[Rfam]
RNA sequence: UUAAGUUAACCACAUAAAAUAUGUCAUCUUUUUUAAUUAAACGCAUCAACCUCAAGCAGAAAAUGCUUGAGAUUUUACAGCUUAUUGAGGCAAAUGCGUAUAAUUAAAGUAGAUGACAUAAUUUAUGUGGUUAACUUAACU
Numbered sequence: 001u002u003a004a005g006u007u008a009a010c011c012a013c014a015u016a017a018a019a020u021a022u023g024u025c026a027u028c029u030u031u032u033u034u035a036a037u038u039a040a041a042c043g044c045a046u047c048a049a050c051c052u053c054a055a056g057c058a059g060a061a062a063a064u065g066c067u068u069g070a071g072a073u074u075u076u077a078c079a080g081c082u083u084a085u086u087g088a089g090g091c092a093a094a095u096g097c098g099u100a101u102a103a104u105u106a107a108a109g110u111a112g113a114u115g116a117c118a119u120a121a122u123u124u125a126u127g128u129g130g131u132u133a134a135c136u137u138a139a140c141u
Stems, first nucleotide, its partner, number of pairs: 001139018020120006028112002031109009041099006050090005